[Rfam]
RNA: A. fumigatus sRNA Afu_254
RNA sequence: AUACCAAACUACUCUACGACUUUCAUUAUUUCGAACUAUCCAGUUCAUACCAAUCCCUCCACAACCAUGUCUCCCUGCAGCUGCAACUGCUGCUCCGGCAACUGCAACUCCUGCUCUUGCAGCGACUGCAAGGUAUGCACCUACCACUUUACC
Numbered sequence: 001a002u003a004c005c006a007a008a009c010u011a012c013u014c015u016a017c018g019a020c021u022u023u024c025a026u027u028a029u030u031u032c033g034a035a036c037u038a039u040c041c042a043g044u045u046c047a048u049a050c051c052a053a054u055c056c057c058u059c060c061a062c063a064a065c066c067a068u069g070u071c072u073c074c075c076u077g078c079a080g081c082u083g084c085a086a087c088u089g090c091u092g093c094u095c096c097g098g099c100a101a102c103u104g105c106a107a108c109u110c111c112u113g114c115u116c117u118u119g120c121a122g123c124g125a126c127u128g129c130a131a132g133g134u135a136u137g138c139a140c141c142u143a144c145c146a147c148u149u150u151a152c153c
Stems, first nucleotide, its partner, number of pairs: 076100003083093003104129003113120002